[Rfam]
RNA sequence: AAUAAGUACAGCCAUAGAUAUCCGUGUUUAGCGUUUUGACUGUUCGUCUUAUUUGAAAAAUUUAUGAAAAAAUUAAAAAAAAUUAGUCACACAUAAAGUACUACUCAUGUUUUAUCAUGUAAUAACAAUAAAAAUACUAAUCAUAAUUUUUUUUAAAUAAGACAAACGGUCAAACGUUAGACAUGAACAGUAAUAAAACUGUAUUUAUU
Numbered sequence: 001a002a003u004a005a006g007u008a009c010a011g012c013c014a015u016a017g018a019u020a021u022c023c024g025u026g027u028u029u030a031g032c033g034u035u036u037u038g039a040c041u042g043u044u045c046g047u048c049u050u051a052u053u054u055g056a057a058a059a060a061u062u063u064a065u066g067a068a069a070a071a072a073u074u075a076a077a078a079a080a081a082a083u084u085a086g087u088c089a090c091a092c093a094u095a096a097a098g099u100a101c102u103a104c105u106c107a108u109g110u111u112u113u114a115u116c117a118u119g120u121a122a123u124a125a126c127a128a129u130a131a132a133a134a135u136a137c138u139a140a141u142c143a144u145a146a147u148u149u150u151u152u153u154u155a156a157a158u159a160a161g162a163c164a165a166a167c168g169g170u171c172a173a174a175c176g177u178u179a180g181a182c183a184u185g186a187a188c189a190g191u192a193a194u195a196a197a198a199c200u201g202u203a204u205u206u207a208u209u
Base pairs, nucleotide, nucleotide: 027181028180029179030178031177032176035174036173037172038171039170040169041168042167043166044165046163047162048161049160050159051158052157
MIR812 microRNA precursor family: a 209-nucleotide RNA from Oryza meridionalis. A search with the family's covariance model found it, with a score of 109 bits. Its family is annotated with miRNA-mediated post-transcriptional gene silencing and RISC complex in the Gene Ontology.